Description:
Shown here is a 153-nucleotide sequence from Sporomusa malonica, a member of the family "glmS glucosamine-6-phosphate activated ribozyme aptamer". The base pairs follow the family's consensus structure, which is taken from published work. NCBI's taxonomy places the organism under Bacteria, Bacillota, Negativicutes, Selenomonadales, Sporomusa. This entry contains a glucosamine-6-phosphate activated ribozyme that is found in the mRNA for GlmS. GlmS is an enzyme that uses fructose-6-phosphate and glutamine to generate glucosamine-6-phosphate. The ribozyme catalyses self cleavage of the glmS mRNA that is thought to regulate GlmS activity.

RNA sequence: ACUAUUGAAAAAGCGCUGGUGCUUAGCUAGAUGCUAAGCAGACGAGGAAGAGGUUUAUCGAGCAGUCAGCGGAUACCUCUCGGCAACUGCGGCCGUAAGCUAAGCCGACAAAGCCACAGGGCGACCUGCGGGACAAAACGGCGGCAGGCAGAC
Dot-bracket structure: ...................((((((((.....))))))))........(((((....(.((....)).)......)))))((((.......))))....(...(((.......((.((((....)))).))........))).).........